[Rfam]
RNA sequence: UACGCAGCGCGUGUUUCAUCACGAUAUUGGGGAAGGACACGCCUUUGAGCCGCGCGGUGCGUAUGUAUUGCGCGGUCAUCACCUCGGCCAUACUGGCGCGGGUCAUCCGGGCGAUAUAGCCCAUGCCGUAAAGCGCGAUGGUCAGCACCGGCAGGAAGAAAUUCUCGAAGGUCGCGUUC
Numbered sequence: 001u002a003c004g005c006a007g008c009g010c011g012u013g014u015u016u017c018a019u020c021a022c023g024a025u026a027u028u029g030g031g032g033a034a035g036g037a038c039a040c041g042c043c044u045u046u047g048a049g050c051c052g053c054g055c056g057g058u059g060c061g062u063a064u065g066u067a068u069u070g071c072g073c074g075g076u077c078a079u080c081a082c083c084u085c086g087g088c089c090a091u092a093c094u095g096g097c098g099c100g101g102g103u104c105a106u107c108c109g110g111g112c113g114a115u116a117u118a119g120c121c122c123a124u125g126c127c128g129u130a131a132a133g134c135g136c137g138a139u140g141g142u143c144a145g146c147a148c149c150g151g152c153a154g155g156a157a158g159a160a161a162u163u164c165u166c167g168a169a170g171g172u173c174g175c176g177u178u179c
Base pairs, nucleotide, nucleotide: 005140006139008137009136010135011134012133014131015130016128020125021124028123029122030121031120038113040111042109046105047104048103050101051100052099053098054097055075057073058072059071060070061069082096083095145179147177149174150173151172152171154165155164156163157162
This 179-nucleotide RNA sequence from Thalassococcus profundi belongs to the Rfam family "Ruegeria cis52 sRNA". Its family is annotated with regulation of gene expression in the Gene Ontology. Rfam classes the family as a small RNA. The family has 2 seed sequences and 277 matches in Rfam 15.1. Lineage of the source: Bacteria > Pseudomonadota > Alphaproteobacteria > Roseobacteraceae > Thalassococcus.